Shown here is an 88-nucleotide sequence, a member of the family "freshwater-2 RNA". The sequence is in the family's curated seed alignment. Pairs were carried over by alignment from the consensus structure, which is taken from published work.
RNA sequence: UCUUACAUCUGGUAAGAGACUUAUGCGGAUAACCACCGCGUACCUAGGAGAACUAGGAUUGGACUCCUAUUAGAGGAGAAACAAAAUG
Numbered sequence: 001u002c003u004u005a006c007a008u009c010u011g012g013u014a015a016g017a018g019a020c021u022u023a024u025g026c027g028g029a030u031a032a033c034c035a036c037c038g039c040g041u042a043c044c045u046a047g048g049a050g051a052a053c054u055a056g057g058a059u060u061g062g063a064c065u066c067c068u069a070u071u072a073g074a075g076g077a078g079a080a081a082c083a084a085a086a087u088g
Stems, first nucleotide, its partner, number of pairs: 001017006022042007043057004